[Rfam]
RNA sequence: UCAAAGGCUCUUUUAAGAGCCACAUAAAUUGCACUUAAAAGAGUUU
Numbered sequence: 001u002c003a004a005a006g007g008c009u010c011u012u013u014u015a016a017g018a019g020c021c022a023c024a025u026a027a028a029u030u031g032c033a034c035u036u037a038a039a040a041g042a043g044u045u046u
Stems, first nucleotide, its partner, number of pairs: 006021006
Record summary
A member of the RNA family "Histone 3' UTR stem-loop" from Sinocyclocheilus anshuiensis, 46 nucleotides long. Rfam classes the family as a cis-regulatory element. Taxonomically the source falls in Sinocyclocheilus (Eukaryota, Gnathostomata, Osteoglossocephalai, Cypriniformes).